[Rfam]
Shown here is a 220-nucleotide RNA from Listeria monocytogenes, a member of the family "Listeria sRNA rliF".

RNA sequence: GAUGGGCAACCUAGUUUUUAUUUAAGGAGAAUUUGUUUAUUUAAAUCAAGGGCAAGCAAAAAUGUAAAAAAAGGGUAUACCCAAAAUAUACCCAAAACCAUCAUUGUAAAUACACUUUUUUCAAUGUAUAGCUAGGGUGGAUAUUAAUUGGUUGUGAAAAGAGUUGCUUUUUAGUCAUGAUAGUAGCAUAUACUCGAGUAAGUUCUACAGAUUAAAAUUU
Numbered sequence: 001g002a003u004g005g006g007c008a009a010c011c012u013a014g015u016u017u018u019u020a021u022u023u024a025a026g027g028a029g030a031a032u033u034u035g036u037u038u039a040u041u042u043a044a045a046u047c048a049a050g051g052g053c054a055a056g057c058a059a060a061a062a063u064g065u066a067a068a069a070a071a072a073g074g075g076u077a078u079a080c081c082c083a084a085a086a087u088a089u090a091c092c093c094a095a096a097a098c099c100a101u102c103a104u105u106g107u108a109a110a111u112a113c114a115c116u117u118u119u120u121u122c123a124a125u126g127u128a129u130a131g132c133u134a135g136g137g138u139g140g141a142u143a144u145u146a147a148u149u150g151g152u153u154g155u156g157a158a159a160a161g162a163g164u165u166g167c168u169u170u171u172u173a174g175u176c177a178u179g180a181u182a183g184u185a186g187c188a189u190a191u192a193c194u195c196g197a198g199u200a201a202g203u204u205c206u207a208c209a210g211a212u213u214a215a216a217a218u219u220u
Stems, first nucleotide, its partner, number of pairs: 002019001004017004034064005073082003085145005091139001093137001150219004155214003158172006183208004188203002191200003
The sequence is in the family's curated seed alignment. Taxonomically the source falls in Listeria (Bacteria, Bacilli, Caryophanales, Listeriaceae). It is annotated as a small RNA.